[Rfam]
Overview:
This 60-nucleotide sequence from Halobaculum gomorrense belongs to the Rfam family "eL15-Euryarchaeota ribosomal protein leader". The family's consensus secondary structure is taken from published work.
RNA sequence: CCCGGUACGCCGGGACGAAAUGUGACCGCUCGGGGCUCCCCGACGCGGUUGAAUCGCAAG
Numbered sequence: 001c002c003c004g005g006u007a008c009g010c011c012g013g014g015a016c017g018a019a020a021u022g023u024g025a026c027c028g029c030u031c032g033g034g035g036c037u038c039c040c041c042g043a044c045g046c047g048g049u050u051g052a053a054u055c056g057c058a059a060g
Stems, first nucleotide, its partner, number of pairs: 001014005016056003024050005

Source information: The match comes from Rfam's covariance-model search (48 bits). The organism belongs to Halobaculum, within Archaea.